The family of this 405-nucleotide RNA from Anaerocolumna sedimenticola is "Bacterial RNase P class A". The family's consensus secondary structure is taken from published work. Taxonomically the source falls in Anaerocolumna (Bacteria, Bacillati, Bacillota, Lachnospiraceae). Ribonuclease P (RNase P) is a ubiquitous endoribonuclease, found in archaea, bacteria and eukarya as well as chloroplasts and mitochondria. The match comes from Rfam's covariance-model search (265 bits). The family's RNA type in Rfam is ribozyme.
RNA sequence: UGAGUAGCACAGAUGAUCGCGCCUAUUAGCUGCCGAAAGGCCUUAGGUGAGGAAAGUCCGAGCUUCAUAGGGCAGAGUGCCGGAUAACGUCCGGUAGAGGCGACUCUAAGGAUAGUGCAACAGAAAUAUACCGCCUGUUUUCUAUUAUGGAUGCAGGUAAGGUUGGAAGGGUGGAGUAAGAGACCACCGCCUGGUUGGUAACAACCAGGGCAUAUGUAAACCCCACUCGAAGCAAGACCGAAUUUAAAGCGAUACGGCUGCCCGUCGUGCUUUAGGGUAGGUCGCGAUUUGCAUAAAAGGUUAUCUGCCCUGGCAGAUGACUUAAGCAAAUGAGCCAUAUGGCAACAUGUGGCAAAGAUAGAUGAUCAUUUAAUACAGAACUCGGCUUAUAGUGCUGCUCAUUUA
Numbered sequence: 001u002g003a004g005u006a007g008c009a010c011a012g013a014u015g016a017u018c019g020c021g022c023c024u025a026u027u028a029g030c031u032g033c034c035g036a037a038a039g040g041c042c043u044u045a046g047g048u049g050a051g052g053a054a055a056g057u058c059c060g061a062g063c064u065u066c067a068u069a070g071g072g073c074a075g076a077g078u079g080c081c082g083g084a085u086a087a088c089g090u091c092c093g094g095u096a097g098a099g100g101c102g103a104c105u106c107u108a109a110g111g112a113u114a115g116u117g118c119a120a121c122a123g124a125a126a127u128a129u130a131c132c133g134c135c136u137g138u139u140u141u142c143u144a145u146u147a148u149g150g151a152u153g154c155a156g157g158u159a160a161g162g163u164u165g166g167a168a169g170g171g172u173g174g175a176g177u178a179a180g181a182g183a184c185c186a187c188c189g190c191c192u193g194g195u196u197g198g199u200a201a202c203a204a205c206c207a208g209g210g211c212a213u214a215u216g217u218a219a220a221c222c223c224c225a226c227u228c229g230a231a232g233c234a235a236g237a238c239c240g241a242a243u244u245u246a247a248a249g250c251g252a253u254a255c256g257g258c259u260g261c262c263c264g265u266c267g268u269g270c271u272u273u274a275g276g277g278u279a280g281g282u283c284g285c286g287a288u289u290u291g292c293a294u295a296a297a298a299g300g301u302u303a304u305c306u307g308c309c310c311u312g313g314c315a316g317a318u319g320a321c322u323u324a325a326g327c328a329a330a331u332g333a334g335c336c337a338u339a340u341g342g343c344a345a346c347a348u349g350u351g352g353c354a355a356a357g358a359u360a361g362a363u364g365a366u367c368a369u370u371u372a373a374u375a376c377a378g379a380a381c382u383c384g385g386c387u388u389a390u391a392g393u394g395c396u397g398c399u400c401a402u403u404u405a
Stems, first nucleotide, its partner, number of pairs: 001401010011390001012370007020049006054388003058385005063232004070263004075228005080094005095109001096107004110223002115221002117217003131162002133158006140151002170188005189211001190209008236283004245274006254268005
Dot-bracket structure: ((((((((((((((((((.((((((..................))))))....[[[.[[[[[((((...[[[[.((((((((((.....)))))(((((....)))).)((...(((((...........((((((((.((........)).))))))..)).......(((((.........)))))(((((((((....)))))))).)...)))..)))))))))))))...((((.....((((((...(((((.]]]]))))))))))).....))))................................................................................)))))))..........]]]]]]]].).))))))))))....